[Rfam]
RNA sequence: GCCGACCCCUCGUGUGGCGGUAUUCCUGCCGAACUCCCCCAGGGCCGGAAGGCAGCAAGGGUAAGUGGGCUCUGCCGGGUACGCGAGGGGUCACCAUA
Numbered sequence: 001g002c003c004g005a006c007c008c009c010u011c012g013u014g015u016g017g018c019g020g021u022a023u024u025c026c027u028g029c030c031g032a033a034c035u036c037c038c039c040c041a042g043g044g045c046c047g048g049a050a051g052g053c054a055g056c057a058a059g060g061g062u063a064a065g066u067g068g069g070c071u072c073u074g075c076c077g078g079g080u081a082c083g084c085g086a087g088g089g090g091u092c093a094c095c096a097u098a
Stems, first nucleotide, its partner, number of pairs: 004092011015079001018077005025069005036061003044053003
RNA: Bacterial small signal recognition particle RNA